[Rfam]
Plant signal recognition particle RNA: a 308-nucleotide sequence from Tetracentron sinense. The match comes from Rfam's covariance-model search (256 bits). The organism belongs to Tetracentron, within Eukaryota. By type it is a non-coding RNA gene.
RNA sequence: GCCGAGCUAGGUAGUGUUAGCUUGUAACCCAAGUGGGGGCAUUAAGAUGGUUGAACGCUGGCUCGACCCUGACUGGUGGGGUCUGAGUCGGUGCGAUUUCCUGACUUGCCCGUUCCAAGCCGAGAGCUGGGCUAUGUGAUUCUGGCGAAGGCUCGAACCACAUGGUCCCUAGAGUGGAGGGCACUGCGCUAGGCUGGUUUCACAGAGCAGCGAAUACCUCUCGCUCUUGACAGUGGAAGGAUAACGAGUUGGUGCACCUCAGACCCUAAAAUGCCUGACGAGCCGAACCCAGUUGAACAACCAUCUUU
Numbered sequence: 001g002c003c004g005a006g007c008u009a010g011g012u013a014g015u016g017u018u019a020g021c022u023u024g025u026a027a028c029c030c031a032a033g034u035g036g037g038g039g040c041a042u043u044a045a046g047a048u049g050g051u052u053g054a055a056c057g058c059u060g061g062c063u064c065g066a067c068c069c070u071g072a073c074u075g076g077u078g079g080g081g082u083c084u085g086a087g088u089c090g091g092u093g094c095g096a097u098u099u100c101c102u103g104a105c106u107u108g109c110c111c112g113u114u115c116c117a118a119g120c121c122g123a124g125a126g127c128u129g130g131g132c133u134a135u136g137u138g139a140u141u142c143u144g145g146c147g148a149a150g151g152c153u154c155g156a157a158c159c160a161c162a163u164g165g166u167c168c169c170u171a172g173a174g175u176g177g178a179g180g181g182c183a184c185u186g187c188g189c190u191a192g193g194c195u196g197g198u199u200u201c202a203c204a205g206a207g208c209a210g211c212g213a214a215u216a217c218c219u220c221u222c223g224c225u226c227u228u229g230a231c232a233g234u235g236g237a238a239g240g241a242u243a244a245c246g247a248g249u250u251g252g253u254g255c256a257c258c259u260c261a262g263a264c265c266c267u268a269a270a271a272u273g274c275c276u277g278a279c280g281a282g283c284c285g286a287a288c289c290c291a292g293u294u295g296a297a298c299a300a301c302c303a304u305c306u307u308u
Base pairs, nucleotide, nucleotide: 001040002039003038004023005022006021007020008019009018010017028037029036030035044307045306046305047304048303049302050301051300052299053298056295057294058292059291060290061288063286064285065284069282070280071279073277075275076274077273078272079266080265081264082263083262084261085260086259091257092256093255096253101252102251103250104249105248106247107246108245110240111239113238114237115236116235117234119231121229122228123227124226125225126224127223129168130167131166132165133164134163135162136161137160138159140157141156142155144153145152146151169174176221177220178219179218180217185214187212188211189210194205195204196203
Dot-bracket structure: ((((((((((......)))))))....(((....))))))...((((((((((..((((((.(((...(((.(.((((((((((((....(((..(....((((((((.((.(((((.(.(((((((.((((((((((.(((.(((....))).))).))))))))))(....).(((((....(.(((....(((......)))....))).)..))))).))))))).)..)))))))....))))))))).))).)))))))).....)))).).)).).))).).))).))..)))))))))).